[Rfam]
RNA sequence: UUUGUCUGUUUUCAGCGCCCUGCUGUGCACCACUUAGUACGCGCGCAAUUACACACAUCCUAACUGGUUUUAGUUUCAGUGAUGCUGAGAAGAUGUGUGUAAUUUGGUGCGUGCUAGGUGGUGCUCAGCACUGUGCUGGAAACAAACAGC
Number, nucleotide and partner (000 for none) at each position: 001u000002u000003u148004g147005u146006c000007u144008g143009u142010u000011u140012u139013c138014a137015g136016c135017g134018c133019c000020c000021u130022g129023c128024u127025g126026u000027g124028c123029a122030c121031c120032a119033c118034u117035u116036a115037g114038u113039a112040c111041g110042c109043g000044c000045g000046c000047a000048a000049u000050u000051a103052c000053a000054c000055a096056c095057a094058u093059c000060c000061u000062a000063a000064c000065u000066g000067g000068u000069u000070u000071u000072a000073g000074u000075u000076u000077c000078a000079g000080u000081g000082a000083u000084g000085c000086u000087g000088a000089g000090a000091a000092g000093a058094u057095g056096u055097g000098u000099g000100u000101a000102a000103u051104u000105u000106g000107g000108u000109g042110c041111g040112u039113g038114c037115u036116a035117g034118g033119u032120g031121g030122u029123g028124c027125u000126c025127a024128g023129c022130a021131c000132u000133g018134u017135g016136c015137u014138g013139g012140a011141a000142a009143c008144a007145a000146a005147c004148a003149g000150c000
This 150-nucleotide sequence from Ceratodon purpureus belongs to the Rfam family "MIR898 microRNA precursor family".